Description
A member of the RNA family "Small nucleolar RNA SNORD16" from Eubucco bourcierii, 100 nucleotides long. By type it is a C/D-box small nucleolar RNA. For this family Rfam cites "A novel small nucleolar RNA (U16) is encoded inside a ribosomal protein intron and originates by processing of the pre-mRNA" (Fragapane et al., EMBO J, 1993). The family is grouped with related families in Rfam's "SNORD16 clan". Gene Ontology terms of the family: RNA processing and nucleolus. The family's consensus secondary structure was predicted with PFOLD.
RNA sequence: UGCCAUGAUGUCGUAAUUUGCGUCUUACUCUGUGCUCAGUGACAGUUGCCUGCUGUCAGUAUACUGGGACAGAUGGCUGACGAACACCUAACGCUGAGCA
Dot-bracket structure: (((.................((((.....((((.....(((((((.......))))).....))....))))......))))...............)))